[Rfam]
RNA sequence: ACUGUUCGAGGUGGAAAAUUUCGUACCCGUUCACACGCCGCUGGCUUGACAGGGGAAACCCGAGAGAUGCAGGAGAAUGGUACGCCUGCCGGACAGU
Numbered sequence: 001a002c003u004g005u006u007c008g009a010g011g012u013g014g015a016a017a018a019u020u021u022c023g024u025a026c027c028c029g030u031u032c033a034c035a036c037g038c039c040g041c042u043g044g045c046u047u048g049a050c051a052g053g054g055g056a057a058a059c060c061c062g063a064g065a066g067a068u069g070c071a072g073g074a075g076a077a078u079g080g081u082a083c084g085c086c087u088g089c090c091g092g093a094c095a096g097u
Stems, first nucleotide, its partner, number of pairs: 001097008011034005023083005036064001037045003069089005
A member of the RNA family "skipping-rope RNA", 97 nucleotides long. The base pairs follow the family's consensus structure, which is taken from published work.